[Rfam]
RNA sequence: CACUUAUCAAGAGAGGUGGAGGGGCUGGCCCUGUGAAACCCGGCAACCAGUCUGCAUAAGCAGACAUGGUGCCAAUUCCUGCAGGCAAACGUCUGCAAGAUGAGUG
Numbered sequence: 001c002a003c004u005u006a007u008c009a010a011g012a013g014a015g016g017u018g019g020a021g022g023g024g025c026u027g028g029c030c031c032u033g034u035g036a037a038a039c040c041c042g043g044c045a046a047c048c049a050g051u052c053u054g055c056a057u058a059a060g061c062a063g064a065c066a067u068g069g070u071g072c073c074a075a076u077u078c079c080u081g082c083a084g085g086c087a088a089a090c091g092u093c094u095g096c097a098a099g100a101u102g103a104g105u106g
Base pairs, nucleotide, nucleotide: 001106002105003104004103005102006101007100008099013041015040016039017038021031022030023029025081027079028078042073043072044071045070047069048068050065051064052063053062077098082095083094084093085092086091
The family of this 106-nucleotide RNA from Marinococcus luteus is "SAM riboswitch aptamer (S box leader)". Taxonomically the source falls in Marinococcus (Bacteria, Bacillati, Bacilli, Bacillaceae). Pairs were carried over by alignment from the consensus structure, which is taken from published work. It scores 88 bits against the family's covariance model.